[Rfam]
RNA sequence: UUAACUUAAAUUUGUUUGGAGUUGGAACGUUUGCCUACGUUUGCCGGUAGGGGCGCUGUUCCAACUGCAUACAAAUUUGAGCGA
Numbered sequence: 001u002u003a004a005c006u007u008a009a010a011u012u013u014g015u016u017u018g019g020a021g022u023u024g025g026a027a028c029g030u031u032u033g034c035c036u037a038c039g040u041u042u043g044c045c046g047g048u049a050g051g052g053g054c055g056c057u058g059u060u061c062c063a064a065c066u067g068c069a070u071a072c073a074a075a076u077u078u079g080a081g082c083g084a
Stems, first nucleotide, its partner, number of pairs: 008078008018068001020066010034052003040046001

The family of this 84-nucleotide RNA sequence from Bombyx mori is "mir-2807 microRNA precursor family". A search with the family's covariance model found it, with a score of 82 bits.